[Rfam]
A member of the RNA family "TUC338" from Coturnix japonica, 183 nucleotides long. The family's consensus secondary structure was predicted with WAR. For this family Rfam cites "Expression and functional role of a transcribed noncoding RNA with an ultraconserved element in hepatocellular carcinoma" (Braconi et al., Proc Natl Acad Sci U S A, 2011).
RNA sequence: CUGACAGCCCUGGAGACUGAAGUCCUCUAUUUAUCCACAGAACAGGUACAGCAUGGGCAGCAGCAGUGCAAGCUUCCCCACAUUGCCCCACCAAUGUGCCUCAACCCUGACCUGGAGAGACCACCUUUAGGGGUAAGAGAGUAGUUCAGAAACAUGCCCUCGGCCUCUCUGCUGUGAGUGACA
Numbered sequence: 001c002u003g004a005c006a007g008c009c010c011u012g013g014a015g016a017c018u019g020a021a022g023u024c025c026u027c028u029a030u031u032u033a034u035c036c037a038c039a040g041a042a043c044a045g046g047u048a049c050a051g052c053a054u055g056g057g058c059a060g061c062a063g064c065a066g067u068g069c070a071a072g073c074u075u076c077c078c079c080a081c082a083u084u085g086c087c088c089c090a091c092c093a094a095u096g097u098g099c100c101u102c103a104a105c106c107c108u109g110a111c112c113u114g115g116a117g118a119g120a121c122c123a124c125c126u127u128u129a130g131g132g133g134u135a136a137g138a139g140a141g142u143a144g145u146u147c148a149g150a151a152a153c154a155u156g157c158c159c160u161c162g163g164c165c166u167c168u169c170u171g172c173u174g175u176g177a178g179u180g181a182c183a
Stems, first nucleotide, its partner, number of pairs: 003169002007164002012159002016155001017149005024141001026140003030137006038109003048101001051099005063086004112130006
Rfam classes the family as a cis-regulatory element. Lineage of the source: Eukaryota > Euteleostomi > Galloanserae > Phasianidae > Coturnix.